[Rfam]
RNA sequence: GCUGGAAUUGCGCGGGUUGUAGUUGAUGAAGGCGUGGCCGCGCGACUGGUCGAUGGUGUGGAACAGCGGGUUCCAGUCGAACAUCUUCAACAUGUAGGGCGGCAGCGUGUUCGCCACGAACAUCUUGCCGGACGCGAUCAUGUUCGCCCGCUG
Numbered sequence: 001g002c003u004g005g006a007a008u009u010g011c012g013c014g015g016g017u018u019g020u021a022g023u024u025g026a027u028g029a030a031g032g033c034g035u036g037g038c039c040g041c042g043c044g045a046c047u048g049g050u051c052g053a054u055g056g057u058g059u060g061g062a063a064c065a066g067c068g069g070g071u072u073c074c075a076g077u078c079g080a081a082c083a084u085c086u087u088c089a090a091c092a093u094g095u096a097g098g099g100c101g102g103c104a105g106c107g108u109g110u111u112c113g114c115c116a117c118g119a120a121c122a123u124c125u126u127g128c129c130g131g132a133c134g135c136g137a138u139c140a141u142g143u144u145c146g147c148c149c150g151c152u153g
Stems, first nucleotide, its partner, number of pairs: 003034002008030002013025003037057004041052002064153005070082004087146001089144006099133001100131001102129001103127003107123002110119002
RNA: Ruegeria cis2 sRNA
Organism: Sagittula salina